[Rfam]
RNA sequence: UGGAACCUUCGGGGUCCUCUAACAUAGUGAGGCGAUGCCUCGCACUGAAAACGAAAGACAGUAA
Dot-bracket structure: .(((.(((...)))))).........(((((((...))))))).....................
L2-Alphaproteobacteria ribosomal protein leader: a 64-nucleotide RNA sequence.
For this family Rfam cites "Discovery of 20 novel ribosomal leader candidates in bacteria and archaea" (Eckert and Weinberg, BMC Microbiol, 2020).
The family's consensus secondary structure is taken from published work.
Rfam classes the family as a cis-regulatory leader.
The sequence is in the family's curated seed alignment.